[Rfam]
RNA sequence: CUAUCUCUUGCUUCAACAGUGUUUAGACGAAACAG
Numbered sequence: 001c002u003a004u005c006u007c008u009u010g011c012u013u014c015a016a017c018a019g020u021g022u023u024u025a026g027a028c029g030a031a032a033c034a035g
Base pairs, nucleotide, nucleotide: 001035002034004032006031008029010028012027013026015024016023017021
The family of this 35-nucleotide RNA sequence from Tursiops truncatus is "Iron response element I". A reference for the family is Walden et al. (2006), "Structure of dual function iron regulatory protein 1 complexed with ferritin IRE-RNA", Science. The organism belongs to Tursiops, within Eukaryota. The family's RNA type in Rfam is cis-regulatory element.